[Rfam]
RNA sequence: GGUUGGUCUGAAGGUAAUGAGUUAUCUCAACUGAUCGCUCACAGUCAGUUACAGGUCCAACUCCUUGUUCUGUUCCUUCUCCCCUUCUUACUACUGCACUUGACUAAUAAAA
Numbered sequence: 001g002g003u004u005g006g007u008c009u010g011a012a013g014g015u016a017a018u019g020a021g022u023u024a025u026c027u028c029a030a031c032u033g034a035u036c037g038c039u040c041a042c043a044g045u046c047a048g049u050u051a052c053a054g055g056u057c058c059a060a061c062u063c064c065u066u067g068u069u070c071u072g073u074u075c076c077u078u079c080u081c082c083c084c085u086u087c088u089u090a091c092u093a094c095u096g097c098a099c100u101u102g103a104c105u106a107a108u109a110a111a112a
Stems, first nucleotide, its partner, number of pairs: 002108007010101002014097002016092001018090004044074001047071002
Shown here is a 112-nucleotide RNA from Aotus nancymaae, a member of the family "Y RNA". Lineage of the source: Eukaryota > Mammalia > Eutheria > Platyrrhini > Aotus. Rfam describes the family as follows. Y RNAs are components of the Ro ribonucleoprotein particle (Ro RNP), in association with Ro60 and La proteins. The Y RNAs and Ro60 and La proteins are well conserved, but the function of the Ro RNP is not known. It is annotated as a non-coding RNA gene.